Shown here is a 78-nucleotide RNA sequence from Thalictrum thalictroides, a member of the family "Small nucleolar RNA SNORD25". Rfam classes the family as a C/D-box small nucleolar RNA. The base pairs follow the family's consensus structure, which was predicted with PFOLD.
[Rfam]
RNA sequence: AAUGCCGAUGAUGACUCCAUAGACCUGUAACGAUUGCGGAGAUGACUGCACAUAUAACAUCUAAGGGGCUGAGGCAUU
Numbered sequence: 001a002a003u004g005c006c007g008a009u010g011a012u013g014a015c016u017c018c019a020u021a022g023a024c025c026u027g028u029a030a031c032g033a034u035u036g037c038g039g040a041g042a043u044g045a046c047u048g049c050a051c052a053u054a055u056a057a058c059a060u061c062u063a064a065g066g067g068g069c070u071g072a073g074g075c076a077u078u
Stems, first nucleotide, its partner, number of pairs: 002077005
Rfam 15.1 lists 985 matches to the family in 241 species. Lineage of the source: Eukaryota > Streptophytina > Spermatophyta > Ranunculaceae > Thalictrum. Clan: SNORD25 clan.